This 151-nucleotide sequence from Phenylobacterium glaciei belongs to the Rfam family "Caulobacter sRNA CC3664". A search with the family's covariance model found it, with a score of 75 bits.
RNA sequence: GUCGGUUGGUCGGAACCCCGCUGGUCCCGGAUCCUGAACAGCCCCCCCAGCCCCCCUGGAUCGCGGGCUUCGGCCAGCCGACACUCUGCUCUCUCCAAGAGAACGAGCCCCAAGACGAGCCCGCACGGUCCCCCCCUCCACCGUGCGGGCU
Number, nucleotide and partner (000 for none) at each position: 001g082002u081003c080004g079005g078006u077007u076008g075009g074010u073011c072012g071013g070014a000015a000016c000017c067018c066019c065020g064021c063022u000023g062024g061025u060026c059027c000028c000029g055030g054031a000032u000033c000034c050035u049036g048037a000038a000039c000040a000041g000042c000043c000044c000045c000046c000047c000048c036049a035050g034051c000052c000053c000054c030055c029056c000057u000058g000059g026060a025061u024062c023063g021064c020065g019066g018067g017068c000069u000070u013071c012072g011073g010074c009075c008076a007077g006078c005079c004080g003081a002082c001083a000084c000085u000086c000087u117088g116089c000090u114091c000092u112093c000094u000095c000096c000097a000098a000099g000100a000101g000102a000103a000104c000105g000106a000107g000108c000109c000110c000111c000112a092113a000114g090115a000116c088117g087118a151119g150120c149121c148122c147123g146124c145125a144126c143127g142128g141129u000130c000131c000132c000133c000134c000135c000136c000137u000138c000139c000140a000141c128142c127143g126144u125145g124146c123147g122148g121149g120150c119151u118